[Rfam]
RNA sequence: AUCAAUCGAAGAGGCGCAGCCGACAUAAGUAACAAUUCUGAGUUGGGCAAAACGAAGAUGAAUUGUAAAAGGGGAGGUUGCCGAAGCUGAGUCAUGCUAAAGGCUUGAGCUGGGGCGUAGUUGAAUAAACUGCGGACUGUCGCGAACAAAAUUCGCGGAGCGCUAUCGACCAUA
Numbered sequence: 001a002u003c004a005a006u007c008g009a010a011g012a013g014g015c016g017c018a019g020c021c022g023a024c025a026u027a028a029g030u031a032a033c034a035a036u037u038c039u040g041a042g043u044u045g046g047g048c049a050a051a052a053c054g055a056a057g058a059u060g061a062a063u064u065g066u067a068a069a070a071g072g073g074g075a076g077g078u079u080g081c082c083g084a085a086g087c088u089g090a091g092u093c094a095u096g097c098u099a100a101a102g103g104c105u106u107g108a109g110c111u112g113g114g115g116c117g118u119a120g121u122u123g124a125a126u127a128a129a130c131u132g133c134g135g136a137c138u139g140u141c142g143c144g145a146a147c148a149a150a151a152u153u154c155g156c157g158g159a160g161c162g163c164u165a166u167c168g169a170c171c172a173u174a
Base pairs, nucleotide, nucleotide: 006169007168008167009166010164011163016081017080018079019078020077021076024073032066033065034064035063036062037061038060085111086110087109088107089106090105091104092103093102095100112138113137116134117133118132119131120130121129122128140158141157142156143155144154145153146152